[Rfam]
The record is a 101-nucleotide part of an RNA from Methanobacterium paludis, which matches "Archaeal large subunit ribosomal RNA" in Rfam. Gene Ontology terms of the family: ribosome and structural constituent of ribosome. Its Rfam clan is "LSU clan".
RNA sequence: GGCACGGCUUGGAAGGAAUGAAGUCUUUCGAAAGAAACCAUGGCAACAUGGGAUUAUGAGAAGGUAUGGACUAAAGUCGUGUCAUCCGUCUUGAAACACGG
Numbered sequence: 001g002g003c004a005c006g007g008c009u010u011g012g013a014a015g016g017a018a019u020g021a022a023g024u025c026u027u028u029c030g031a032a033a034g035a036a037a038c039c040a041u042g043g044c045a046a047c048a049u050g051g052g053a054u055u056a057u058g059a060g061a062a063g064g065u066a067u068g069g070a071c072u073a074a075a076g077u078c079g080u081g082u083c084a085u086c087c088g089u090c091u092u093g094a095a096a097c098a099c100g101g
Base pairs, nucleotide, nucleotide: 001083002082003081004080005079006078007077008076009075010074015072016071025064026063027062028061029060033057038051039050040049041048042047086101087100088099089098
The family's consensus secondary structure is taken from published work.